[Rfam]
Nucleotides: 163
Stems, first nucleotide, its partner, number of pairs: 006158005011149001013101001015144003020138003026133007039119005045077001046074002049071001055066004084110002087107001090104003
Number, partner (000 for none) and nucleotide at each position: 001000a002000u003000a004000g005000a006158g007157u008156u009155c010154c011149g012000g013101u014000a015144g016143g017142u018000a019000a020138g021137g022136c023000u024000a025000c026133c027132a028131c029130a030129g031128g032127g033000a034000u035000a036000u037000g038000g039119a040118u041117c042116g043115c044000u045077g046074c047073c048000g049071c050000a051000g052000a053000g054000u055066g056065a057064u058063g059000g060000a061000g062000a063058c064057a065056u066055c067000a068000u069000g070000a071049g072000a073047g074046g075000g076000u077045u078000u079000g080000a081000a082000c083000a084110g085109g086000c087107g088000a089000u090104a091103u092102c093000g094000a095000a096000c097000a098000a099000c100000a101013a102092g103091g104090u105000a106000u107087c108000a109085u110084c111000u112000a113000a114000c115043g116042c117041g118040a119039u120000u121000u122000c123000a124000c125000c126000g127032c128031c129030c130029u131028g132027u133026g134000a135000a136022g137021c138020u139000a140000a141000a142017g143016c144015u145000u146000g147000a148000a149011c150000g151000g152000u153000a154010g155009g156008g157007a158006u159000g160000c161000u162000g163000u
The family of this 163-nucleotide RNA sequence from Dysosmobacter segnis is "M-box riboswitch aptamer (ykoK leader)". The base pairs follow the family's consensus structure. On this family, see Ramesh and Winkler, RNA Biol 2010: "Magnesium-sensing riboswitches in bacteria". The match comes from Rfam's covariance-model search (97 bits). M-box riboswitch, also know as ykoK leader is described as a metaloregulatory RNA that sense divalent metals and function as a genetic control element of genes related to divalent metal transport in bacteria. It was first reported upstream of the B.subtilis ykoK gene and genes with related functions in other bacteria.